Rfam assigns this 55-nucleotide sequence from Pyrococcus furiosus to the family "Small nucleolar RNA sR45". The base pairs follow the family's consensus structure, which was predicted with WAR.
[Rfam]
RNA sequence: CGGGAUGAGGAAGCCGAGGACACCUGAUGGAUGAUGACUCUUCGCUUCGCCGACC
Numbered sequence: 001c002g003g004g005a006u007g008a009g010g011a012a013g014c015c016g017a018g019g020a021c022a023c024c025u026g027a028u029g030g031a032u033g034a035u036g037a038c039u040c041u042u043c044g045c046u047u048c049g050c051c052g053a054c055c
Base pairs, nucleotide, nucleotide: 006052007051010048011047012046013045014044016043017042018041019040020039021033022032